[Rfam]
RNA sequence: CGACCUUGUGCGGGAGAGUCCCUUCCACUGCCAGUAGGAGGGGCGCCGAAGGAGCAAACCUCCCCGGAAUCUCUCAGGCACCGGUACCGCACGGGCGAG
Numbered sequence: 001c002g003a004c005c006u007u008g009u010g011c012g013g014g015a016g017a018g019u020c021c022c023u024u025c026c027a028c029u030g031c032c033a034g035u036a037g038g039a040g041g042g043g044c045g046c047c048g049a050a051g052g053a054g055c056a057a058a059c060c061u062c063c064c065c066g067g068a069a070u071c072u073c074u075c076a077g078g079c080a081c082c083g084g085u086a087c088c089g090c091a092c093g094g095g096c097g098a099g
Stems, first nucleotide, its partner, number of pairs: 006094008020043007045079003048075002052073003059066001
The record is a 99-nucleotide RNA from Acrocarpospora phusangensis, which matches "Glycine riboswitch aptamer" in Rfam. The organism belongs to Acrocarpospora, within Bacteria. It scores 63 bits against the family's covariance model.